[Rfam]
The record is an 85-nucleotide sequence from Bacillus sp. FJAT-26390, which matches "c-di-GMP-I riboswitch aptamer" in Rfam. The source organism's lineage runs through Bacteria, Bacillota, Bacilli, Bacillaceae and Bacillus.
RNA sequence: AACUGAAAAAGGCAAACUUGUCGAAAGGCAAGGACGCAAAGUUAUGGGCCUAAGGUGCUAUCACUAAGGCUGCCAGACCGCCGGA
Numbered sequence: 001a002a003c004u005g006a007a008a009a010a011g012g013c014a015a016a017c018u019u020g021u022c023g024a025a026a027g028g029c030a031a032g033g034a035c036g037c038a039a040a041g042u043u044a045u046g047g048g049c050c051u052a053a054g055g056u057g058c059u060a061u062c063a064c065u066a067a068g069g070c071u072g073c074c075a076g077a078c079c080g081c082c083g084g085a
Stems, first nucleotide, its partner, number of pairs: 012037002017032006041078003045075003048070003055064003